[Rfam]
RNA sequence: ACCGUCUCGCAUAACUGGCGGAAACGUGGAGUGCACCACGAGGGAGUGCGAGAGGAACAAACAUAGCCGACCGCCUGGGCACCUUUG
Numbered sequence: 001a002c003c004g005u006c007u008c009g010c011a012u013a014a015c016u017g018g019c020g021g022a023a024a025c026g027u028g029g030a031g032u033g034c035a036c037c038a039c040g041a042g043g044g045a046g047u048g049c050g051a052g053a054g055g056a057a058c059a060a061a062c063a064u065a066g067c068c069g070a071c072c073g074c075c076u077g078g079g080c081a082c083c084u085u086u087g
Stems, first nucleotide, its partner, number of pairs: 003055001005053008015043002017075005026039004066080003
RNA: ZMP/ZTP riboswitch aptamer (pfl RNA motif)
Organism: Tumebacillus algifaecis